[Rfam]
RNA sequence: UGCUUACCAAUGAUGGUCAAAAUAAAUGUCUGAACAUAUGAUUUCACUGUGAUAUCAGCGUUUUAAACUGAGGUAAGCA
Numbered sequence: 001u002g003c004u005u006a007c008c009a010a011u012g013a014u015g016g017u018c019a020a021a022a023u024a025a026a027u028g029u030c031u032g033a034a035c036a037u038a039u040g041a042u043u044u045c046a047c048u049g050u051g052a053u054a055u056c057a058g059c060g061u062u063u064u065a066a067a068c069u070g071a072g073g074u075a076a077g078c079a
Base pairs, nucleotide, nucleotide: 002078003077004076005075006074007073008072
A member of the RNA family "Small nucleolar RNA SNORD72" from Gouania willdenowi, 79 nucleotides long. On this family, see Huttenhofer et al., EMBO J 2001: "RNomics: an experimental approach that identifies 201 candidates for novel, small, non-messenger RNAs in mouse". It is annotated as a C/D-box small nucleolar RNA. The family has 16 seed sequences and 726 matches in Rfam 15.1. snoRNA HBII-240 belongs to the CD family of snoRNAs. It is the human orthologue of the mouse MBII-240 and is predicted to guide 2'O-ribose methylation of the large 28S rRNA at residue U4590.